[Rfam]
RNA sequence: UCCCCGCUUCUCCUCCCUGAGCGGGUGCCUGUCGAUAUCGAUUAAGCUGUUAACCUGUCCCUGUCGUCAUGCGGCGGGUUUUUUAU
Numbered sequence: 001u002c003c004c005c006g007c008u009u010c011u012c013c014u015c016c017c018u019g020a021g022c023g024g025g026u027g028c029c030u031g032u033c034g035a036u037a038u039c040g041a042u043u044a045a046g047c048u049g050u051u052a053a054c055c056u057g058u059c060c061c062u063g064u065c066g067u068c069a070u071g072c073g074g075c076g077g078g079u080u081u082u083u084u085a086u
Base pairs, nucleotide, nucleotide: 003025004024005023006022007021008020027047028046030044032041033040034039059078060077061076063075064074065073066072
RNA: Burkholderia RNA 7 (anti-hemB)
Organism: Candidatus Paraburkholderia kirkii